[Rfam]
RNA sequence: UUAAGACUUGCAGUGAUGUUUAGGUAACUCAGCUCAUGAACAUCACUUUAAGUCUGUGCU
Numbered sequence: 001u002u003a004a005g006a007c008u009u010g011c012a013g014u015g016a017u018g019u020u021u022a023g024g025u026a027a028c029u030c031a032g033c034u035c036a037u038g039a040a041c042a043u044c045a046c047u048u049u050a051a052g053u054c055u056g057u058g059c060u
Stems, first nucleotide, its partner, number of pairs: 004055007013046010